Description: Group II catalytic intron D1-D4-7: a 146-nucleotide RNA sequence from Caenimonas sedimenti. The organism belongs to Caenimonas, within Bacteria. Pairs were carried over by alignment from the consensus structure. Rfam's curators write: Group II introns are found in rRNA, tRNA and mRNA of organelles in fungi, plants and protists, and also in mRNA in bacteria.
[Rfam]
RNA sequence: CCACGCAUGGAACUGCGUGACCUCACCCGUAAGUGCGACCUGAGUAAUCGGGUGGUGCGAAGCAACGGAUAAACCUCCUCCGCUCGCAAGAGCAACAGUGUGCCGGCGACGGCGUACGACGCGCUGACCAAGACUGCGCGAGGAGG
Numbered sequence: 001c002c003a004c005g006c007a008u009g010g011a012a013c014u015g016c017g018u019g020a021c022c023u024c025a026c027c028c029g030u031a032a033g034u035g036c037g038a039c040c041u042g043a044g045u046a047a048u049c050g051g052g053u054g055g056u057g058c059g060a061a062g063c064a065a066c067g068g069a070u071a072a073a074c075c076u077c078c079u080c081c082g083c084u085c086g087c088a089a090g091a092g093c094a095a096c097a098g099u100g101u102g103c104c105g106g107c108g109a110c111g112g113c114g115u116a117c118g119a120c121g122c123g124c125u126g127a128c129c130a131a132g133a134c135u136g137c138g139c140g141a142g143g144a145g146g
Base pairs, nucleotide, nucleotide: 002019003018004017005016006015007014027068028067029066030065033058034057035056036055038053039052040051041050042049043048082093083092084091085090098117099116104111105110121139122138123137124136126134